[Rfam]
Archaeal large subunit ribosomal RNA: a 578-nucleotide part of an RNA from Archaeoglobus sulfaticallidus. Taxonomically the source falls in Archaeoglobus sulfaticallidus (Archaea, Methanobacteriota, Archaeoglobales, Archaeoglobaceae). It scores 2940 bits against the family's covariance model. The family's consensus secondary structure is taken from published work.
RNA sequence: CCCCCGUUGGGAAGCGAAGACCCUGUGGAGCUUUACUGCAGCCUGCCGUUGCGGUAUGGUUGGGGGUGCGCAGUGUAGGUGGGAGGCUUCGAAGCCCCGUCUCCGGGCGGGGUGGAGCCGUCGAUGAGACACCACCCACCUCCAACCGUACCGCUAACCGCUUCGGCGGGACAUCGGUAGGUGGGCAGUUUGGGUGGGGCGCCACUCCCCCGAAAAGGUAUCGGGGGAGCCCAAAGGUCGGCUCAGGCGGGUCAGAACUCCGCCGUAGAGUGCAAGGGCAAAAGCCGGCCUGACGUGAUUCCGCACAAUAAGGAAUCACGAGCCGAAAGGCGGGCCUAGCGAACCAUCCUGGCCUAUUGGUGAGGCCGGAUGACGACAGAAAAGCUACCCCAGGGAUAACAGAGUUGUCCCCGGCGAGAGUACAUAUCGACCCGGGGGCUUGCUACCUCGAUGUCGGCUCUCCCCAUCCUGGCCGUGCAGCAGCGGCCAAGGGUGAGGUUGUUCGCCUAUUAAAGGGGAUCGUGAGCUGGGUUUAGACCGUCGUGAGACAGGUCGGUUGCUAUCUAACGGGGGUGUCU
Number, nucleotide and partner (000 for none) at each position: 001c573002c572003c571004c570005c569006g568007u567008u566009g000010g565011g564012a563013a000014g560015c559016g000017a000018a000019g000020a000021c000022c394023c393024u392025g391026u000027g390028g389029a386030g385031c384032u383033u382034u000035a189036c188037u187038g186039c000040a000041g000042c181043c180044u179045g178046c177047c176048g175049u000050u000051g154052c153053g152054g151055u150056a149057u148058g147059g146060u145061u144062g143063g142064g141065g140066g139067u138068g137069c000070g000071c000072a000073g000074u000075g000076u000077a000078g136079g135080u134081g133082g132083g000084a000085g119086g118087c117088u000089u000090c000091g000092a000093a000094g000095c000096c000097c110098c109099g108100u107101c106102u000103c000104c000105g000106g101107g100108c099109g098110g097111g000112g000113u000114g000115g000116a000117g087118c086119c085120g000121u000122c000123g000124a000125u000126g000127a000128g000129a000130c000131a000132c082133c081134a080135c079136c078137c068138a067139c066140c065141u064142c063143c062144a061145a060146c059147c058148g057149u056150a055151c054152c053153g052154c051155u000156a000157a000158c169159c168160g167161c166162u000163u000164c000165g000166g161167c160168g159169g158170g000171a000172c000173a000174u000175c048176g047177g046178u045179a044180g043181g042182u000183g000184g000185g000186c038187a037188g036189u035190u000191u000192g205193g203194g202195u201196g000197g000198g000199g000200c000201g195202c194203c193204a000205c192206u228207c227208c226209c225210c224211c223212g000213a000214a000215a000216a000217g000218g000219u000220a000221u000222c000223g211224g210225g209226g208227g207228a206229g000230c000231c334232c333233a000234a000235a000236g000237g289238u288239c287240g286241g285242c284243u269244c268245a000246g264247g263248c262249g261250g260251g259252u000253c000254a000255g000256a000257a000258c000259u251260c250261c249262g248263c247264c246265g000266u000267a000268g244269a243270g279271u278272g000273c000274a000275a000276g000277g000278g271279c270280a000281a000282a000283a000284g242285c241286c240287g239288g238289c237290c000291u000292g000293a000294c320295g319296u318297g317298a316299u315300u314301c313302c312303g000304c000305a000306c000307a000308a000309u000310a000311a000312g302313g301314a300315a299316u298317c297318a296319c295320g294321a000322g331323c000324c329325g000326a000327a000328a000329g324330g000331c322332g000333g232334g231335c000336c000337u000338a000339g000340c000341g000342a000343a000344c000345c372346a371347u370348c369349c368350u000351g367352g366353c365354c364355u363356a000357u000358u000359g000360g000361u000362g000363a355364g354365g353366c352367c351368g349369g348370a347371u346372g345373a000374c000375g000376a000377c000378a000379g000380a000381a000382a033383a032384g031385c030386u029387a000388c000389c028390c027391c025392a024393g023394g022395g000396a000397u000398a000399a000400c000401a000402g000403a444404g443405u442406u000407g441408u438409c437410c436411c435412c434413g433414g432415c000416g000417a000418g428419a427420g000421u000422a000423c000424a000425u000426a000427u419428c418429g000430a000431c000432c414433c413434g412435g411436g410437g409438g408439c000440u000441u407442g405443c404444u403445a000446c000447c000448u000449c000450g000451a000452u000453g000454u000455c530456g528457g527458c526459u525460c522461u519462c518463c517464c516465c515466a000467u000468c493469c492470u000471g000472g487473c486474c485475g484476u483477g000478c000479a000480g000481c000482a000483g476484c475485g474486g473487c472488c000489a000490a000491g000492g469493g468494u000495g000496a508497g507498g506499u505500u000501g000502u000503u000504c000505g499506c498507c497508u496509a000510u000511u000512a000513a000514a000515g465516g464517g463518g462519a461520u000521c000522g460523u000524g000525a459526g458527c457528u456529g000530g455531g000532u000533u000534u000535a000536g554537a553538c552539c551540g549541u548542c547543g000544u000545g000546a000547g542548a541549c540550a000551g539552g538553u537554c536555g000556g000557u000558u000559g015560c014561u000562a000563u012564c011565u010566a008567a007568c006569g005570g004571g003572g002573g001574u000575g000576u000577c000578u000